[Rfam]
RNA sequence: AGUCCAUGAUGAUAAAUGUUAAGACUUGUUUCUUAGAGACAUUUGCAGUAGCCGCCUGAGAGCUUUCGCCUUGCCGGGCUUUAGAGCUUAUGCUGCUUAACUCUCCUUCCUCGGAUGUCUGAGACU
Dot-bracket structure: ((((.........................................................(((((................)))))...................................))))
Numbered sequence: 001a002g003u004c005c006a007u008g009a010u011g012a013u014a015a016a017u018g019u020u021a022a023g024a025c026u027u028g029u030u031u032c033u034u035a036g037a038g039a040c041a042u043u044u045g046c047a048g049u050a051g052c053c054g055c056c057u058g059a060g061a062g063c064u065u066u067c068g069c070c071u072u073g074c075c076g077g078g079c080u081u082u083a084g085a086g087c088u089u090a091u092g093c094u095g096c097u098u099a100a101c102u103c104u105c106c107u108u109c110c111u112c113g114g115a116u117g118u119c120u121g122a123g124a125c126u
Stems, first nucleotide, its partner, number of pairs: 001126004062087005